Description: The family of this 67-nucleotide RNA sequence is "Small nucleolar RNA Z105". The family's consensus secondary structure was predicted with CMfinder. The family has 11 seed sequences and 621 matches in Rfam 15.1.
RNA sequence: UUGGCAUGAUGAGGAAAACCGAUGUUUUUGGAUCUAUUUGAUGAUAAAUUCCUCCUACUCAUUCUGA
Numbered sequence: 001u002u003g004g005c006a007u008g009a010u011g012a013g014g015a016a017a018a019c020c021g022a023u024g025u026u027u028u029u030g031g032a033u034c035u036a037u038u039u040g041a042u043g044a045u046a047a048a049u050u051c052c053u054c055c056u057a058c059u060c061a062u063u064c065u066g067a
Base pairs, nucleotide, nucleotide: 006062007061008060009059028046